[Rfam]
RNA sequence: CACGUCAGAGCGCUUUGCUGACGUGGCAUCAAAUCGCCCCCUAGUGGACACGAUUUUCUGCCACGUCAGCAAAGCGCGCUGACGUGG
Numbered sequence: 001c002a003c004g005u006c007a008g009a010g011c012g013c014u015u016u017g018c019u020g021a022c023g024u025g026g027c028a029u030c031a032a033a034u035c036g037c038c039c040c041c042u043a044g045u046g047g048a049c050a051c052g053a054u055u056u057u058c059u060g061c062c063a064c065g066u067c068a069g070c071a072a073a074g075c076g077c078g079c080u081g082a083c084g085u086g087g
Stems, first nucleotide, its partner, number of pairs: 001086008010077012023064006031056006040047002
A member of the RNA family "MIR7486 microRNA precursor family" from Gossypium raimondii, 87 nucleotides long. Gene Ontology terms of the family: RISC complex and miRNA-mediated post-transcriptional gene silencing. The source organism's lineage runs through Eukaryota, Gunneridae, Malvales, Malvaceae and Gossypium.